RNA sequence: UUGGGCUGGGGAAGGGCUGCUGGGUGGUGGGGCCAGUGGGCCCAGCCCUGUCCCAGCCAGUCUGACCCGUGCCCGAGAUCAGCUCCCAGGUGGGCUCCCUGCUGGGACUCACCUGUGCAGUAACAGGUGUGAGCAUUCAUGAAGCAUUUUGAUGGUCAUGUAUGAUACUGCAUACAAAG
Dot-bracket structure: ..((((.(((....((((((((.(.(((.(.(((....))).).))).....))))).))))...)))..))))...........((.(((((.....))))).)).......(((((((((.((....(((.((((...((....))..)))).)))....)).))))))))).....
Record summary
Small Cajal body specific RNA 16: a 179-nucleotide sequence from Sakesphorus luctuosus. scaRNAs are a specific class of small nuclear RNAs which localise to the Cajal bodies and guide the modification of RNA polymerase II transcribed spliceosomal RNAs U1, U2, U4, U5 and U12. ACA47 belongs to the H/ACA box class of guide RNAs as it has the predicted hairpin-hinge-hairpin-tail structure, the conserved H/ACA-box motifs and is found associated with GAR1. ACA47 is predicted to guide the pseudouridylation of residue U5 of the U1 spliceosomal snRNA. Gene Ontology terms of the family: RNA processing and nucleolus. For this family Rfam cites "Cajal body-specific small nuclear RNAs: a novel class of 2'-O-methylation and pseudouridylation guide RNAs" (Darzacq et al., EMBO J, 2002). Taxonomically the source falls in Sakesphorus (Eukaryota, Chordata, Sarcopterygii, Passeriformes). The base pairs follow the family's consensus structure, which was predicted with RNAfold. It scores 128 bits against the family's covariance model.